RNA sequence: AGCUGAUGCACAUGGCGGUUUUCUCCUCCCAGUACCGCCGCACCAGCUGUUCCCCUCUGGAGGUUUUGACCUUCACACCUUAUGGGCCGCGGUUUCCGCUGGCCCUUUUUU
Numbered sequence: 001a002g003c004u005g006a007u008g009c010a011c012a013u014g015g016c017g018g019u020u021u022u023c024u025c026c027u028c029c030c031a032g033u034a035c036c037g038c039c040g041c042a043c044c045a046g047c048u049g050u051u052c053c054c055c056u057c058u059g060g061a062g063g064u065u066u067u068g069a070c071c072u073u074c075a076c077a078c079c080u081u082a083u084g085g086g087c088c089g090c091g092g093u094u095u096c097c098g099c100u101g102g103c104c105c106u107u108u109u110u111u
Base pairs, nucleotide, nucleotide: 001048002047003046004045005044007042008041009040015038016037017036018035058075059074060073061072062071063070064069084105085104086103087102088101089099090098091097092096
RNA: Alphaproteobacterial ar15